[Rfam]
RNA sequence: AUUUGAAUCAAACCGCACCGAGAGGUUGGUGUAAAUAUUCAAAUAUUUACACCAACCUCUCGGUGCGGUUUGAUUCAAAU
Dot-bracket structure: (((.(((...((((((((.(.((((((((......................)))))))))..))))))))...))).)))

Record summary
Rfam assigns this 80-nucleotide sequence from Diabrotica virgifera to the family "mir-16 microRNA precursor family". Pairs were carried over by alignment from the consensus structure, which was predicted with PFOLD. The match comes from Rfam's covariance-model search (47 bits). The family has 14 seed sequences and 4,705 matches in Rfam 15.1. Taxonomically the source falls in Diabrotica virgifera (Eukaryota, Cucujiformia, Chrysomelidae, Galerucinae).